[Rfam]
Nucleotides: 106
Stems, first nucleotide, its partner, number of pairs: 001106001005101002056074002059071001
Number, partner (000 for none) and nucleotide at each position: 001106a002000a003000a004000c005101c006100a007000u008000g009000a010000u011000g012000a013000g014000g015000g016000c017000a018000u019000c020000u021000u022000c023000u024000c025000a026000a027000a028000a029000g030000a031000u032000c033000u034000u035000u036000g037000u038000a039000u040000c041000u042000c043000u044000c045000c046000c047000a048000g049000g050000c051000a052000u053000c054000g055000u056074a057073u058000a059071g060000u061000a062000u063000u064000u065000c066000u067000u068000a069000a070000u071059c072000c073057a074056u075000c076000u077000g078000c079000a080000c081000a082000a083000a084000a085000g086000a087000a088000g089000a090000g091000a092000u093000a094000u095000c096000g097000u098000u099000u100006u101005g102000u103000a104000a105000u106001u